[Rfam]
This 139-nucleotide RNA from Desulfobacca acetoxidans belongs to the Rfam family "c-di-AMP riboswitch aptamer (ydaO/yuaA leader)". Gene Ontology terms of the family: cyclic-di-AMP binding and regulation of gene expression.
RNA sequence: CUAUACUAACAGCCGAAAUCCAUGGUCAAACUAUGGGUGCGGGGGAACCGGGUAUUAGGGGCGUAUCGCCGUCCGGCGUAGGACAACCUCAUCGGUCCAAGCCCUGCAGCUAACCUCGUAGGCGUCGAUGGGGAGAGAC
Number, nucleotide and partner (000 for none) at each position: 001c000002u000003a000004u000005a000006c000007u000008a000009a000010c000011a000012g123013c122014c121015g000016a000017a000018a038019u037020c036021c035022a034023u033024g032025g031026u030027c000028a000029a000030a026031c025032u024033a023034u022035g021036g020037g019038u018039g119040c118041g117042g116043g115044g114045g000046a000047a000048c000049c058050g000051g000052g000053u000054a000055u000056u000057a000058g049059g104060g103061g102062c000063g000064u000065a000066u000067c078068g077069c076070c075071g000072u000073c000074c000075g070076g069077c068078g067079u000080a000081g098082g097083a096084c095085a000086a000087c000088c000089u000090c000091a000092u000093c000094g000095g084096u083097c082098c081099a000100a000101g000102c061103c060104c059105u000106g000107c000108a000109g000110c000111u000112a000113a000114c044115c043116u042117c041118g040119u039120a000121g014122g013123c012124g000125u000126c000127g000128a000129u000130g000131g000132g000133g000134a000135g000136a000137g000138a000139c000